The record is a 57-nucleotide sequence from Caenibius tardaugens, which matches "chrB-b RNA" in Rfam.
It is annotated as a cis-regulatory element.
The family's consensus secondary structure is taken from published work.
The source organism's lineage runs through Bacteria, Pseudomonadati, Alphaproteobacteria, Erythrobacteraceae and Caenibius tardaugens.

RNA sequence: ACGGGCCAAUGCGGACGCCCGGUCAGACGCUGCCCGGUGAUGGUCGUCCAAGUCCGC
Numbered sequence: 001a002c003g004g005g006c007c008a009a010u011g012c013g014g015a016c017g018c019c020c021g022g023u024c025a026g027a028c029g030c031u032g033c034c035c036g037g038u039g040a041u042g043g044u045c046g047u048c049c050a051a052g053u054c055c056g057c
Base pairs, nucleotide, nucleotide: 002021003020004019005018006017011057012056013055014054015053026048027047028046029045